RNA sequence: CUUGGAUUAAUGGUUAGAGGCAGGGAACAGGCUGAGCAUGGAUGAAACUAUCAACAGAUCGGAAAACUGUUGUGGCUCCACUCAUGCACUGCCUCUUCCCUGGCUCUGUUUUCAUUUUUCCAU
Number, nucleotide and partner (000 for none) at each position: 001c000002u000003u000004g000005g000006a000007u000008u000009a000010a000011u000012g000013g000014u000015u000016a000017g106018a105019g104020g000021c102022a101023g100024g099025g098026a097027a096028c000029a094030g093031g092032c091033u000034g089035a000036g087037c086038a085039u084040g083041g082042a000043u000044g000045a000046a077047a000048c000049u000050a000051u000052c000053a000054a000055c000056a000057g000058a000059u000060c000061g000062g000063a000064a000065a000066a000067c000068u000069g000070u000071u000072g000073u000074g000075g000076c000077u046078c000079c000080a000081c000082u041083c040084a039085u038086g037087c036088a000089c034090u000091g032092c031093c030094u029095c000096u027097u026098c025099c024100c023101u022102g021103g000104c019105u018106c017107u000108g000109u000110u000111u000112u000113c000114a000115u000116u000117u000118u000119u000120c000121c000122a000123u000
RNA: MIR408 microRNA precursor family